Annotation: This 143-nucleotide sequence from Alteromonadaceae bacterium 2753L.S.0a.02 belongs to the Rfam family "Molybdenum/Tungsten riboswitch aptamer (Moco RNA motif)". The base pairs follow the family's consensus structure, which is taken from published work. The source organism's lineage runs through Bacteria, Pseudomonadati, Pseudomonadota, Alteromonadales and Alteromonadaceae. It scores 50 bits against the family's covariance model.
[Rfam]
RNA sequence: AACAGGCCCAGCUGAAGUUUACCGACCUAAAUCUCAAGAUACGGUUGUUGAACCGCAACGCCCGAAAUGUUCGGGUCGAUUGCCGGGUUGCUUAAGAAAUUAAGCAAUCUCCCGAUAUUUGGAAAGGCGAAACCAUGAUCACC
Numbered sequence: 001a002a003c004a005g006g007c008c009c010a011g012c013u014g015a016a017g018u019u020u021a022c023c024g025a026c027c028u029a030a031a032u033c034u035c036a037a038g039a040u041a042c043g044g045u046u047g048u049u050g051a052a053c054c055g056c057a058a059c060g061c062c063c064g065a066a067a068u069g070u071u072c073g074g075g076u077c078g079a080u081u082g083c084c085g086g087g088u089u090g091c092u093u094a095a096g097a098a099a100u101u102a103a104g105c106a107a108u109c110u111c112c113c114g115a116u117a118u119u120u121g122g123a124a125a126g127g128c129g130a131a132a133c134c135a136u137g138a139u140c141a142c143c
Stems, first nucleotide, its partner, number of pairs: 001136001008129001011128003017053005023047005031040003055083004085110011111122002